ffh sRNA: a 52-nucleotide RNA sequence from Cereibacter sphaeroides.
It is annotated as a small RNA.

Nucleotides: 052
Base pairs, nucleotide, nucleotide: 016044017043018042019041020040021039022038025035026034027033028032
Number, partner (000 for none) and nucleotide at each position: 001000c002000a003000c004000g005000a006000c007000c008000g009000g010000g011000a012000u013000c014000g015000c016044c017043a018042c019041c020040c021039a022038u023000c024000a025035g026034c027033g028032c029000g030000a031000u032028g033027c034026g035025c036000c037000c038022a039021u040020g041019g042018g043017u044016g045000c046000c047000g048000u049000u050000g051000u052000g